[Rfam]
RNA sequence: GCCCCUGUGCGCUGUGGAAGACUAGUGAUUUUGUUGUUGUUCGUUCAGCUCUGACAACAAGUCACAGUCUACCUCAGUGAGCAGGUGG
Numbered sequence: 001g002c003c004c005c006u007g008u009g010c011g012c013u014g015u016g017g018a019a020g021a022c023u024a025g026u027g028a029u030u031u032u033g034u035u036g037u038u039g040u041u042c043g044u045u046c047a048g049c050u051c052u053g054a055c056a057a058c059a060a061g062u063c064a065c066a067g068u069c070u071a072c073c074u075c076a077g078u079g080a081g082c083a084g085g086u087g088g
Base pairs, nucleotide, nucleotide: 002087004085005084006083007082008081010079011078012077013076014075016073017072019070020069021068022067023066025065026064027063028062029061030060031059033058034057035056036055037054038053
RNA: mir-7 microRNA precursor family